[Rfam]
RNA sequence: AUGUGUUCAAUAGGGUUGAUUUGAGAACAUAUGUAUGGGCAUAUUUUGUUUCUAACAAUUUAUUGUUUAUAAAUGUGACACAUAUGUUCUCAGGUCGCCCCUGUAGACUAUUC
Numbered sequence: 001a002u003g004u005g006u007u008c009a010a011u012a013g014g015g016u017u018g019a020u021u022u023g024a025g026a027a028c029a030u031a032u033g034u035a036u037g038g039g040c041a042u043a044u045u046u047u048g049u050u051u052c053u054a055a056c057a058a059u060u061u062a063u064u065g066u067u068u069a070u071a072a073a074u075g076u077g078a079c080a081c082a083u084a085u086g087u088u089c090u091c092a093g094g095u096c097g098c099c100c101c102u103g104u105a106g107a108c109u110a111u112u113c
Base pairs, nucleotide, nucleotide: 007107008106011103012102013101014100017097018096019095023091024090025089026088027087028086029085030084031083032082033081034080
MIR398 microRNA precursor family: a 113-nucleotide RNA sequence from Solanum tuberosum. A search with the family's covariance model found it, with a score of 65 bits. NCBI's taxonomy places the organism under Eukaryota, Mesangiospermae, lamiids, Solanoideae, Solanum. A reference for the family is Xie et al. (2005), "Expression of Arabidopsis MIRNA genes", Plant Physiol.